[Rfam]
RNA sequence: CACACAUAUAAAUUUGUAAUACCGUUCAUUUGGUAUUAUUUUUGGACAGUAGUUGUAUUUCAUGAUCAAUUGGAAUUAUAUAUACGAAUACACUAAGAAGAGACAAAUAUAUAAAAAUAU
Dot-bracket structure: ......((((..(((((..(((.(((((...((.....))..))))).)))...((((((.(((.((.....))....)))....))))))...........)))))..)))).......
RNA: Streptococcus sRNA SpF14